[Rfam]
RNA sequence: UGCAUCCUCAAUUCCGUAGUGCAUUGCAGUCGAUUAUUCGAUUCACGUGAGAGAACCUGCAAGCACCGCGGGAGUGAGGUGGCUUC
Dot-bracket structure: .....(((((..(((((..(((.(((((.............................))))))))..)))))..))))).......

mir-932 microRNA precursor family: an 86-nucleotide RNA from Lasius niger.
A reference for the family is Ruby et al. (2007), "Evolution, biogenesis, expression, and target predictions of a substantially expanded set of Drosophila microRNAs", Genome Res.